Rfam assigns this 563-nucleotide part of an RNA from Porphyromonas asaccharolytica to the family "Bacterial small subunit ribosomal RNA".
RNA sequence: ACAAUGGAGAGUUUGACUCUGGCUCAGGAUGAACGCUAGCGAUAGGCUUAACACAUGCAAGUCGAGGGGCAGCGAGAUGUAGCAAUACGUCGUCGGCGACCGGCGAAUGGGUGAGUAACACGUAUGCAACUUACCUCUUAGUGGUGAAUAACCCGAUGAAAGUCGGACUAAUACACCAUAUACUCCUUAGAUCCCAUGAGAAGAGGAGGAAAGAUUAAUCGCUAAGAGAUGGGCCUGCGUUCCAUUAGCUAGUUGGUAAGGUAACGGCUUACCAAGGCAACGAUGGAUAGGGGGACUGAGAGGUUGACCCCCCACAUUGACACUGAGAUACGGGUCAAACUCCUACGGGAGGCAGCAGUGAGGAAUAUUGGUCAAUGGGCGAGAGCCUGAACCAGCCAAGUCGCGUGAAGGAAGACUGCCCGCAAGGGUUGUAAACUUCUUUUGUAUGGGAUUAAAGUCACCUACGUGUAGGUGUUUGCAGUUACCAUACGAAUAAGCAUCGGCUAACUCCGUGCCAGCAGCCGCGGUAAUACGGAGGAUGCGAGCGUUAUCCGGAAUUAUUG
Dot-bracket structure: ........(((((.......))))).((((.((((((.(((((.(((....(((.(((..(((..((.((.....((((((....))))))....))..)))))......(((......(((((.((..((...(((((((.((((......(((((....))))).......)))).....((((((...((....))...))))))....((....)).)))))))..)))).)))))(((....(((..((((((((.......)))))))))))......)))..((((((((....))))...))))))).(((((............))))).((((....))))...)))))).).....(.(((...(((((....))))).)))).))..)))))..((((.......(((......)))......))))....((((((...(.....(((..........))).....)....))))))......(((((......(((((.....((....)).......)))))))))).))))))))))..........
Numbered sequence: 001a002c003a004a005u006g007g008a009g010a011g012u013u014u015g016a017c018u019c020u021g022g023c024u025c026a027g028g029a030u031g032a033a034c035g036c037u038a039g040c041g042a043u044a045g046g047c048u049u050a051a052c053a054c055a056u057g058c059a060a061g062u063c064g065a066g067g068g069g070c071a072g073c074g075a076g077a078u079g080u081a082g083c084a085a086u087a088c089g090u091c092g093u094c095g096g097c098g099a100c101c102g103g104c105g106a107a108u109g110g111g112u113g114a115g116u117a118a119c120a121c122g123u124a125u126g127c128a129a130c131u132u133a134c135c136u137c138u139u140a141g142u143g144g145u146g147a148a149u150a151a152c153c154c155g156a157u158g159a160a161a162g163u164c165g166g167a168c169u170a171a172u173a174c175a176c177c178a179u180a181u182a183c184u185c186c187u188u189a190g191a192u193c194c195c196a197u198g199a200g201a202a203g204a205g206g207a208g209g210a211a212a213g214a215u216u217a218a219u220c221g222c223u224a225a226g227a228g229a230u231g232g233g234c235c236u237g238c239g240u241u242c243c244a245u246u247a248g249c250u251a252g253u254u255g256g257u258a259a260g261g262u263a264a265c266g267g268c269u270u271a272c273c274a275a276g277g278c279a280a281c282g283a284u285g286g287a288u289a290g291g292g293g294g295a296c297u298g299a300g301a302g303g304u305u306g307a308c309c310c311c312c313c314a315c316a317u318u319g320a321c322a323c324u325g326a327g328a329u330a331c332g333g334g335u336c337a338a339a340c341u342c343c344u345a346c347g348g349g350a351g352g353c354a355g356c357a358g359u360g361a362g363g364a365a366u367a368u369u370g371g372u373c374a375a376u377g378g379g380c381g382a383g384a385g386c387c388u389g390a391a392c393c394a395g396c397c398a399a400g401u402c403g404c405g406u407g408a409a410g411g412a413a414g415a416c417u418g419c420c421c422g423c424a425a426g427g428g429u430u431g432u433a434a435a436c437u438u439c440u441u442u443u444g445u446a447u448g449g450g451a452u453u454a455a456a457g458u459c460a461c462c463u464a465c466g467u468g469u470a471g472g473u474g475u476u477u478g479c480a481g482u483u484a485c486c487a488u489a490c491g492a493a494u495a496a497g498c499a500u501c502g503g504c505u506a507a508c509u510c511c512g513u514g515c516c517a518g519c520a521g522c523c524g525c526g527g528u529a530a531u532a533c534g535g536a537g538g539a540u541g542c543g544a545g546c547g548u549u550a551u552c553c554g555g556a557a558u559u560a561u562u563g
Stems, first nucleotide, its partner, number of pairs: 009025005027553004032549006039404005045397002047362001052360003056357003061104003066101002069097002076091006111315003120240005126234002130232002135228007143177004153166005183208006192199002213220002241287003248278003253275008290312004294305004317338005340351004368394001370393003376389005407439004418429003444490006453480001459474003497542005508537005518525002

The family's consensus secondary structure is taken from published work.